[Rfam]
RNA sequence: CCGCUUUUAUUUUUGUGCCGGAUCCCUAUAUGCGGUUGUGCCGGUUCGUCCGGCUAUGGCGAUAAACUGCGGCGUGCAAUAGGCGCAGCGGACCCGGGGGCAGUACCCGGCGGCUCCACCACCAUCCGCCCGUCCGGCGGUUGAUGACGGGGCCGAACCAGGAUCGACGUGUGUUGAAAAGCGCAGCUUUCGCCCGGAAUGGGACCACCGCAAAUGGCCCAUAUUCACAAGUGCCAACGAUAACGAGGCGCUCGCGAUUGCGGCCUAAUCCAAGACCUCACGGUCUAGAUUAGAACGACAAAAGCGCGGUUGGACCACACCGGGCAACAGAAGUGGAUUCC
Numbered sequence: 001c002c003g004c005u006u007u008u009a010u011u012u013u014u015g016u017g018c019c020g021g022a023u024c025c026c027u028a029u030a031u032g033c034g035g036u037u038g039u040g041c042c043g044g045u046u047c048g049u050c051c052g053g054c055u056a057u058g059g060c061g062a063u064a065a066a067c068u069g070c071g072g073c074g075u076g077c078a079a080u081a082g083g084c085g086c087a088g089c090g091g092a093c094c095c096g097g098g099g100g101c102a103g104u105a106c107c108c109g110g111c112g113g114c115u116c117c118a119c120c121a122c123c124a125u126c127c128g129c130c131c132g133u134c135c136g137g138c139g140g141u142u143g144a145u146g147a148c149g150g151g152g153c154c155g156a157a158c159c160a161g162g163a164u165c166g167a168c169g170u171g172u173g174u175u176g177a178a179a180a181g182c183g184c185a186g187c188u189u190u191c192g193c194c195c196g197g198a199a200u201g202g203g204a205c206c207a208c209c210g211c212a213a214a215u216g217g218c219c220c221a222u223a224u225u226c227a228c229a230a231g232u233g234c235c236a237a238c239g240a241u242a243a244c245g246a247g248g249c250g251c252u253c254g255c256g257a258u259u260g261c262g263g264c265c266u267a268a269u270c271c272a273a274g275a276c277c278u279c280a281c282g283g284u285c286u287a288g289a290u291u292a293g294a295a296c297g298a299c300a301a302a303a304g305c306g307c308g309g310u311u312g313g314a315c316c317a318c319a320c321c322g323g324g325c326a327a328c329a330g331a332a333g334u335g336g337a338u339u340c341c
Stems, first nucleotide, its partner, number of pairs: 040054005058194005069187002072184004084173003088170003094110005111155007195210003200221003205217002307322004313339002316336001

Alphaproteobacteria transfer-messenger RNA: a 341-nucleotide sequence from Stakelama sediminis. A reference for the family is Williams and Bartel (1996), "Phylogenetic analysis of tmRNA secondary structure", RNA. The source organism's lineage runs through Bacteria, Pseudomonadati, Pseudomonadota, Sphingomonadales and Stakelama. Rfam's curators write: Bacterial tmRNA, also known as 10Sa RNA or SsrA, is named for its dual tRNA and mRNA-like properties. Its role is to liberate the mRNA from a stalled ribosome. To accomplish this part of the tmRNA is used as a reading frame that ends in a translation stop signal. The broken mRNA is replaced in the ribosome by the tmRNA and translation of the tmRNA leads to addition of a proteolysis tag to the incomplete protein enabling recognition by a protease. The family's RNA type in Rfam is non-coding RNA gene. Clan: tRNA clan.